[Rfam]
RNA sequence: UGAGGCCUAUGAUGAUUUAAAGAUUUGCCUACAUUGUCUGAUUUGCAUAAAGUGAUGGAGGAAUCUGAAAACUGCUACUGAGACCACA
Numbered sequence: 001u002g003a004g005g006c007c008u009a010u011g012a013u014g015a016u017u018u019a020a021a022g023a024u025u026u027g028c029c030u031a032c033a034u035u036g037u038c039u040g041a042u043u044u045g046c047a048u049a050a051a052g053u054g055a056u057g058g059a060g061g062a063a064u065c066u067g068a069a070a071a072c073u074g075c076u077a078c079u080g081a082g083a084c085c086a087c088a
Stems, first nucleotide, its partner, number of pairs: 001088002004085002007082001

Small nucleolar RNA SNORD34: an 88-nucleotide RNA from Camellia sinensis. The literature on the family includes a 2003 paper in Nucleic Acids Res by Chen et al., "The high diversity of snoRNAs in plants: identification and comparative study of 120 snoRNA genes from Oryza sativa". The family has 14 seed sequences and 1,319 matches in Rfam 15.1. Clan: SNORD34 clan. Rfam classes the family as a C/D-box small nucleolar RNA. Rfam's curators write: snoRNA U34 is found in intron 5 of the ribosomal protein L13a gene in humans.